[Rfam]
RNA sequence: UGGUGUUACAGCUUUUUAAGAAUUUCUCUUGCAGGUUUUCCGGUCUUCACCGGAAAGACCCUU
Numbered sequence: 001u002g003g004u005g006u007u008a009c010a011g012c013u014u015u016u017u018a019a020g021a022a023u024u025u026c027u028c029u030u031g032c033a034g035g036u037u038u039u040c041c042g043g044u045c046u047u048c049a050c051c052g053g054a055a056a057g058a059c060c061c062u063u
Stems, first nucleotide, its partner, number of pairs: 034060003037056008
RNA: U7 small nuclear RNA